[Rfam]
RNA: Small nucleolar RNA sn2903
RNA sequence: AGGCGAUGAAGAAACCGUUCUGACACCUCUUAUGUUAGUGGUUCAAGUAGGGACCGCAAUGAUUCCAUAGGGAAGGCUGAGCCU
Numbered sequence: 001a002g003g004c005g006a007u008g009a010a011g012a013a014a015c016c017g018u019u020c021u022g023a024c025a026c027c028u029c030u031u032a033u034g035u036u037a038g039u040g041g042u043u044c045a046a047g048u049a050g051g052g053a054c055c056g057c058a059a060u061g062a063u064u065c066c067a068u069a070g071g072g073a074a075g076g077c078u079g080a081g082c083c084u
Base pairs, nucleotide, nucleotide: 001084002083003082004081
Dot-bracket structure: ((((............................................................................))))